[Rfam]
RNA sequence: CAUAAUGCUUAGAUUGGCUGCAUUAUGUGUGGGACAUCCUAAAUUUUUAUGAGCCCUGUGGUGAGUGGGGGAAAGGGGUUAACCAGGCCUCUAGUACCACAGGCACCAAUGGACAGGGCAACUCGAACCUGAGAGAGAGGUACCGAACUCUUAAGUCCCGAGUACGGGGCAGACGUCACCGAGUAGUACACCCAAAGACCACCACUUUUAGGUGUAGGGUCUACUGAGGCUCGGGUGGACGUGGGCGUGCCCAAAGAGAAAUCGGUGGUGGACCCGGGGGUCGGGACCACCAUGCCCUUCACGGGGCAGACCUUACUGCUUGAUAGAGUGCCGGCGGAUGCCUCGGGUGAGAGUAUAAAAUCCGUUGUUUAUUAAC
Numbered sequence: 001c002a003u004a005a006u007g008c009u010u011a012g013a014u015u016g017g018c019u020g021c022a023u024u025a026u027g028u029g030u031g032g033g034a035c036a037u038c039c040u041a042a043a044u045u046u047u048u049a050u051g052a053g054c055c056c057u058g059u060g061g062u063g064a065g066u067g068g069g070g071g072a073a074a075g076g077g078g079u080u081a082a083c084c085a086g087g088c089c090u091c092u093a094g095u096a097c098c099a100c101a102g103g104c105a106c107c108a109a110u111g112g113a114c115a116g117g118g119c120a121a122c123u124c125g126a127a128c129c130u131g132a133g134a135g136a137g138a139g140g141u142a143c144c145g146a147a148c149u150c151u152u153a154a155g156u157c158c159c160g161a162g163u164a165c166g167g168g169g170c171a172g173a174c175g176u177c178a179c180c181g182a183g184u185a186g187u188a189c190a191c192c193c194a195a196a197g198a199c200c201a202c203c204a205c206u207u208u209u210a211g212g213u214g215u216a217g218g219g220u221c222u223a224c225u226g227a228g229g230c231u232c233g234g235g236u237g238g239a240c241g242u243g244g245g246c247g248u249g250c251c252c253a254a255a256g257a258g259a260a261a262u263c264g265g266u267g268g269u270g271g272a273c274c275c276g277g278g279g280g281u282c283g284g285g286a287c288c289a290c291c292a293u294g295c296c297c298u299u300c301a302c303g304g305g306g307c308a309g310a311c312c313u314u315a316c317u318g319c320u321u322g323a324u325a326g327a328g329u330g331c332c333g334g335c336g337g338a339u340g341c342c343u344c345g346g347g348u349g350a351g352a353g354u355a356u357a358a359a360a361u362c363c364g365u366u367g368u369u370u371a372u373u374a375a376c
Stems, first nucleotide, its partner, number of pairs: 001027008053119006063104001066101002068098002073092001075090001077089003121354004127348007134317002137314005143265004148258004155170006173242005180233005185225004190220004195215001243252003268290004273285005293308006318329004332367008

About this RNA: A member of the RNA family "Pestivirus internal ribosome entry site (IRES) including 5'UTR SLI", 376 nucleotides long. Rfam links the family to the GO term ribosome binding. Rfam describes the family as follows. This family represents the internal ribosome entry site (IRES) of the the pestiviruses. The pestivirus IRES allows cap and end-independent translation of mRNA in the host cell. The IRES achieves this by mediating the internal initiation of translation by recruiting a ribosomal 43S pre-initiation complex directly to the initiation codon and eliminates the requirement for eIF4F. The classical swine virus UTR described in appears to be longer at the 5' end than other pestivirus UTRs. This family represents the conserved core. It is one of the family's seed sequences. The base pairs follow the family's consensus structure. On this family, see Arhab et al., Viruses 2020: "Dissemination of Internal Ribosomal Entry Sites (IRES) Between Viruses by Horizontal Gene Transfer".